Rfam assigns this 75-nucleotide RNA from Thermobaculum terrenum to the family "c-di-GMP-I-GGC riboswitch aptamer". The source organism's lineage runs through Bacteria, Chloroflexota, Thermobaculaceae (SeqCode), Thermobaculum (SeqCode) and Thermobaculum terrenum. A search with the family's covariance model found it, with a score of 75 bits.
RNA sequence: CCAGAAAAGGGCAAACCCGUCGUGAGAUGGGGACGCAAAGCCACGGGACUCUAAGAGUCAGCCGGGCUGCCUGGG
Numbered sequence: 001c002c003a004g005a006a007a008a009g010g011g012c013a014a015a016c017c018c019g020u021c022g023u024g025a026g027a028u029g030g031g032g033a034c035g036c037a038a039a040g041c042c043a044c045g046g047g048a049c050u051c052u053a054a055g056a057g058u059c060a061g062c063c064g065g066g067c068u069g070c071c072u073g074g075g
Stems, first nucleotide, its partner, number of pairs: 001075001003072002011036002016031006034061001039068004044064003047059003
About this RNA:
The family has 40 seed sequences and 1,298 matches in Rfam 15.1.